Shown here is a 308-nucleotide RNA sequence from Rhodococcus gordoniae, a member of the family "Mycobacterium smegmatis small RNA 1". Rfam describes the family as follows. Mycobacterium smegmatis small RNA 1 is highly expressed during stationary phase of growth. Ms1 RNA directly interacts with RNA polymerase (RNAP), but in a different way than 6S, which is present in other bacteria. Taxonomically the source falls in Rhodococcus (Bacteria, Actinomycetota, Actinomycetes, Mycobacteriales). Gene Ontology term of the family: RNA polymerase binding. A reference for the family is Hnilicova et al. (2014), "Ms1, a novel sRNA interacting with the RNA polymerase core in mycobacteria", Nucleic Acids Res.
RNA sequence: ACGGAAGGACGGAAGGCCAAGACCGAAUCGGAAGAGAAGAUUCGAUCUCCCGACUGUUCUUCCCAGCACGGACACCGAGUACCCACGCGAAGCCGAUGCCACUAUAAGGGCACAAGCGUUGUGGGCCUGCGAGUUCCGGAUUUUCGAAGACAAGUACCCCGCACCCGUUGCGAGGACGAAUCGACGAUACCCGGAUCAUCGCCGAGGCCGUUGAAUCACAACCCAUUUCAGCACGCAUGGUAACUCGGACCGCCCGUGCUAGCGGGUGGCGGAAUCGAUCUCGAUCGAUAUGCCACCCGCUUUCGCGU
Numbered sequence: 001a002c003g004g005a006a007g008g009a010c011g012g013a014a015g016g017c018c019a020a021g022a023c024c025g026a027a028u029c030g031g032a033a034g035a036g037a038a039g040a041u042u043c044g045a046u047c048u049c050c051c052g053a054c055u056g057u058u059c060u061u062c063c064c065a066g067c068a069c070g071g072a073c074a075c076c077g078a079g080u081a082c083c084c085a086c087g088c089g090a091a092g093c094c095g096a097u098g099c100c101a102c103u104a105u106a107a108g109g110g111c112a113c114a115a116g117c118g119u120u121g122u123g124g125g126c127c128u129g130c131g132a133g134u135u136c137c138g139g140a141u142u143u144u145c146g147a148a149g150a151c152a153a154g155u156a157c158c159c160c161g162c163a164c165c166c167g168u169u170g171c172g173a174g175g176a177c178g179a180a181u182c183g184a185c186g187a188u189a190c191c192c193g194g195a196u197c198a199u200c201g202c203c204g205a206g207g208c209c210g211u212u213g214a215a216u217c218a219c220a221a222c223c224c225a226u227u228u229c230a231g232c233a234c235g236c237a238u239g240g241u242a243a244c245u246c247g248g249a250c251c252g253c254c255c256g257u258g259c260u261a262g263c264g265g266g267u268g269g270c271g272g273a274a275u276c277g278a279u280c281u282c283g284a285u286c287g288a289u290a291u292g293c294c295a296c297c298c299g300c301u302u303u304c305g306c307g308u
Stems, first nucleotide, its partner, number of pairs: 003063002006060007015051002020048002024044006065260007075248003079244002083240003087236003092232002097112004118222006124209005129202004135195005143189001262300010275288003